Ribosomal S15 leader: a 118-nucleotide sequence from Erwinia sorbitola.
The source organism's lineage runs through Bacteria, Gammaproteobacteria, Enterobacterales, Erwiniaceae and Erwinia.
Its family is annotated with regulation of translation, ncRNA-mediated in the Gene Ontology.
About the family: The E. coli Ribosomal S15 gene 5' UTR can form two alternative structures. One that is a series of three hairpins, The other includes a pseudoknot. This structure causes translational regulation of the S15 protein. The alignment of this family contains only the final two hairpins which are conserved in other species, and also includes the complete region that forms the alternate structures.
Pairs were carried over by alignment from the consensus structure, which is taken from published work.

RNA sequence: CUGGGUUGCUGAAUUAGAGAUCGGCGCCUGUACAUUUAUCUUAAUUUUUUGGAGUUGUCUCAUGUCUCUAAGUGUUGAAACUAAAGCACAGAUCGUUGCUGAUUUCGGUCGUGACGCA
Numbered sequence: 001c002u003g004g005g006u007u008g009c010u011g012a013a014u015u016a017g018a019g020a021u022c023g024g025c026g027c028c029u030g031u032a033c034a035u036u037u038a039u040c041u042u043a044a045u046u047u048u049u050u051g052g053a054g055u056u057g058u059c060u061c062a063u064g065u066c067u068c069u070a071a072g073u074g075u076u077g078a079a080a081c082u083a084a085a086g087c088a089c090a091g092a093u094c095g096u097u098g099c100u101g102a103u104u105u106c107g108g109u110c111g112u113g114a115c116g117c118a
Stems, first nucleotide, its partner, number of pairs: 007026006048072007